[Rfam]
RNA sequence: UUCUUGAGCUGGAAAGGUGACAUAAAAUCAUGUCCAAGCACGCGAUAUUAUGCACAUUUUCUAGUCCAAGAC
Numbered sequence: 001u002u003c004u005u006g007a008g009c010u011g012g013a014a015a016g017g018u019g020a021c022a023u024a025a026a027a028u029c030a031u032g033u034c035c036a037a038g039c040a041c042g043c044g045a046u047a048u049u050a051u052g053c054a055c056a057u058u059u060u061c062u063a064g065u066c067c068a069a070g071a072c
Stems, first nucleotide, its partner, number of pairs: 002071005008065009017055003021052005027046003031042003

A member of the RNA family "mir-60 microRNA precursor family" from Caenorhabditis briggsae, 72 nucleotides long.
A reference for the family is Lau et al. (2001), "An abundant class of tiny RNAs with probable regulatory roles in Caenorhabditis elegans", Science.
Rfam 15.1 lists 12 matches to the family in 11 species.
NCBI's taxonomy places the organism under Eukaryota, Opisthokonta, Ecdysozoa, Peloderinae, Caenorhabditis.